[Rfam]
RNA sequence: AGAGGCACGAUGAGGAUGCACAUUUGAUGAGGUCUUAAGAUCUAUGAAAUUUUUCUACAUAAACUUUCGAAAGUCCUUUUCAUUCUGAGUGCCUC
Number, nucleotide and partner (000 for none) at each position: 001a000002g000003a000004g093005g092006c091007a090008c089009g000010a083011u082012g081013a080014g079015g078016a077017u000018g000019c000020a000021c000022a000023u000024u000025u000026g000027a000028u000029g000030a000031g000032g000033u000034c000035u000036u000037a000038a000039g000040a000041u000042c000043u000044a000045u000046g000047a000048a000049a000050u000051u000052u000053u000054u000055c000056u000057a000058c000059a000060u000061a000062a000063a000064c000065u000066u000067u000068c000069g000070a000071a000072a000073g000074u000075c000076c000077u016078u015079u014080u013081c012082a011083u010084u000085c000086u000087g000088a000089g008090u007091g006092c005093c004094u000095c000